[Rfam]
RNA sequence: UAACUCUGGUUUCCCUUCAAAACGCAUAAAUCUUUCGCCUUUUACUAAAGAUUUCCGUGGAGGGGAACACUCAAAUGAGUCUAUAAUAUUUUUUGAAUACUUCGCUUCGGCGGAGUA
Numbered sequence: 001u002a003a004c005u006c007u008g009g010u011u012u013c014c015c016u017u018c019a020a021a022a023c024g025c026a027u028a029a030a031u032c033u034u035u036c037g038c039c040u041u042u043u044a045c046u047a048a049a050g051a052u053u054u055c056c057g058u059g060g061a062g063g064g065g066a067a068c069a070c071u072c073a074a075a076u077g078a079g080u081c082u083a084u085a086a087u088a089u090u091u092u093u094u095g096a097a098u099a100c101u102u103c104g105c106u107u108c109g110g111c112g113g114a115g116u117a
Stems, first nucleotide, its partner, number of pairs: 003080004009068011028054008099116006
A member of the RNA family "U5 spliceosomal RNA" from Heliothis virescens, 117 nucleotides long. Rfam links the family to the GO terms spliceosomal tri-snRNP complex assembly and U5 snRNP. Rfam classes the family as a spliceosomal small nuclear RNA. Pairs were carried over by alignment from the consensus structure, which is taken from published work. Rfam's curators write: U5 RNA is a component of both types of known spliceosome.